[Rfam]
RNA sequence: GUGAAGUUGAUCACAACAAACAUAUACCCCUUUGUUUGACCGUGAAAAAUUUCUCCCAUCCCCUUUGUUCGUAUUUAAAAAAAUGCCUUGCAGUUAUACUGCAAGGCAUUUUU
Numbered sequence: 001g002u003g004a005a006g007u008u009g010a011u012c013a014c015a016a017c018a019a020a021c022a023u024a025u026a027c028c029c030c031u032u033u034g035u036u037u038g039a040c041c042g043u044g045a046a047a048a049a050u051u052u053c054u055c056c057c058a059u060c061c062c063c064u065u066u067g068u069u070c071g072u073a074u075u076u077a078a079a080a081a082a083a084u085g086c087c088u089u090g091c092a093g094u095u096a097u098a099c100u101g102c103a104a105g106g107c108a109u110u111u112u113u
Stems, first nucleotide, its partner, number of pairs: 003053006011045004017038006069078001071076001082110011
RNA Staph. aureus E (RoxS): a 113-nucleotide RNA sequence from Neobacillus thermocopriae. A search with the family's covariance model found it, with a score of 104 bits. Rfam describes the family as follows. It was shown to be regulated by the presence of nitric oxide (NO). In Bacillus subtilis it controls expression of genes with functions related to oxidative stress and oxidation-reduction reactions and it was renamed RoxS (for related to oxidative stress). The organism belongs to Neobacillus, within Bacteria.